[Rfam]
This 100-nucleotide RNA sequence from Liquorilactobacillus oeni belongs to the Rfam family "Purine riboswitch aptamer". Riboswitches are metabolite binding domains within certain messenger RNAs that serve as precision sensors for their corresponding targets.
RNA sequence: UAUUAUUCUAAGGUGCUUACUUAUAUAAAGUCAUAAUACGGUUGACCAGUUUCUACCCAAGGCCCCUAAACCUUGGACUAUGAGUAAAAAUUGUGAUAUU
Numbered sequence: 001u002a003u004u005a006u007u008c009u010a011a012g013g014u015g016c017u018u019a020c021u022u023a024u025a026u027a028a029a030g031u032c033a034u035a036a037u038a039c040g041g042u043u044g045a046c047c048a049g050u051u052u053c054u055a056c057c058c059a060a061g062g063c064c065c066c067u068a069a070a071c072c073u074u075g076g077a078c079u080a081u082g083a084g085u086a087a088a089a090a091u092u093g094u095g096a097u098a099u100u
Stems, first nucleotide, its partner, number of pairs: 018086008030046004057076006